[Rfam]
RNA sequence: UCUAGUAUUUUACCUAAUCACAAUCAAGUAUUACUGGAGCGGAGGAACCAAUUAUAGGGGCGUAUCUCUUAGAAAAUUCAAAAUGUAAAAUUAAAAAUUAAAAUAUGUCUAAUUUUUUAAUUUUUAAUAAUUUAAUUCUGAUAAGAGAAGGACAUUUCUCAGUUCGAGCCCGUCAGCUAACUUCGUAGGCAAUGAGAAGAGACUGA
Numbered sequence: 001u002c003u004a005g006u007a008u009u010u011u012a013c014c015u016a017a018u019c020a021c022a023a024u025c026a027a028g029u030a031u032u033a034c035u036g037g038a039g040c041g042g043a044g045g046a047a048c049c050a051a052u053u054a055u056a057g058g059g060g061c062g063u064a065u066c067u068c069u070u071a072g073a074a075a076a077u078u079c080a081a082a083a084u085g086u087a088a089a090a091u092u093a094a095a096a097a098u099u100a101a102a103a104u105a106u107g108u109c110u111a112a113u114u115u116u117u118u119a120a121u122u123u124u125u126a127a128u129a130a131u132u133u134a135a136u137u138c139u140g141a142u143a144a145g146a147g148a149a150g151g152a153c154a155u156u157u158c159u160c161a162g163u164u165c166g167a168g169c170c171c172g173u174c175a176g177c178u179a180a181c182u183u184c185g186u187a188g189g190c191a192a193u194g195a196g197a198a199g200a201g202a203c204u205g206a
Stems, first nucleotide, its partner, number of pairs: 011191001013189002018038002039186006049057001058171003066147006150165004

A member of the RNA family "c-di-AMP riboswitch aptamer (ydaO/yuaA leader)" from Oscillatoriales cyanobacterium USR001, 206 nucleotides long.
It scores 62 bits against the family's covariance model.
From the family's description: This family represents a conserved RNA structure found upstream of the ydaO and yuaA genes in Bacillus subtilis and related genes in other bacteria. The ydaO/yuaA element is thought to act as a genetic 'off' switch for the ydaO and yuaA genes in its native state.